The record is a 71-nucleotide RNA sequence from Carlito syrichta, which matches "Small nucleolar RNA SNORD18" in Rfam.

RNA sequence: AGCAGUGAUGAAAUUCCACAUCAUUGGUCCGUGUUUCUGAACCACAUGAUUCUCUUGGAUGAUCUGAUGCU
Numbered sequence: 001a002g003c004a005g006u007g008a009u010g011a012a013a014u015u016c017c018a019c020a021u022c023a024u025u026g027g028u029c030c031g032u033g034u035u036u037c038u039g040a041a042c043c044a045c046a047u048g049a050u051u052c053u054c055u056u057g058g059a060u061g062a063u064c065u066g067a068u069g070c071u
Stems, first nucleotide, its partner, number of pairs: 001071004
Dot-bracket structure: ((((...............................................................))))
The literature on the family includes a 1993 paper in Nucleic Acids Res by Prislei et al., "Two different snoRNAs are encoded in introns of amphibian and human L1 ribosomal protein genes". Its family is annotated with nucleolus and RNA processing in the Gene Ontology. The family's consensus secondary structure was predicted with PFOLD. Its Rfam clan is "SNORD18 clan".